[Rfam]
Rfam assigns this 496-nucleotide part of an RNA from Candidatus Nitrososphaera gargensis to the family "Archaeal small subunit ribosomal RNA". The literature on the family includes a 2001 paper in Science by Yusupov et al., "Crystal structure of the ribosome at 5.5 A resolution". Rfam 15.1 lists 709 matches to the family in 491 species. Its Rfam clan is "SSU clan".
RNA sequence: UCCGGUUGAUCCUGCCGGACCCGACUGCUAUCAGAGUGGGACUAAGCCAUGCGAGUCAACGCCGCAAGGCGUGGCAUACGGCUCAGUAACACGUAGUCAACAUGCCCAGGGGACGUGGAUAACCUCGGGAAACUGAGGAUAAACCGCGAUAGGCCAAGGUUUCUGGAAUGGACCAUGGCUGAAAUCUAUAUGGCCCCUGGAUUGGACUGCGGCCGAUCAGGCUGUUGGUGAGGUAAUGGCCCACCAAACCUGUAACCGGUACGGGCUUUGAGAGAAGGAGCCCGGAGAUGGGCACUGAGACAAGGGCCCAGGCCCUAUGGGGCGCAGCAGGCGCGAAACCUCUGCAAUAGGCGAAAGCCUGACAGGGUUACUCUGAGUGAUGCCCGCUAAGGGCAUCUUUUGGCACCUCUAAAAAUGGUGCAGAAUAAGGGGUGGGCAAGUCUGGUGUCAGCCGCCGCGGUAAUACCAGCACCCCGAGUGGUCGGGACGAUUAUUG
Dot-bracket structure: .(((((.......))))).((((((((((.((((((((((.....(((.(((..(((.(((((....))))))))......(((.......(((((((..((...(((((((.((((.....((((((....))))))......))))....((((.(((.((......))))).))))......(.....).)))))))..))))))))).(((....((...((((((.(.......).)))))).))......)))..((((((((....))))...))))))).(((((............))))).((((....))))...)))))).).....(.(((...(((((....))))).)))).)))))))))..(((((((.....))))))).....(((((.........))))).......((((((.......((((.....((....)).......)))))))))).))))))))))..........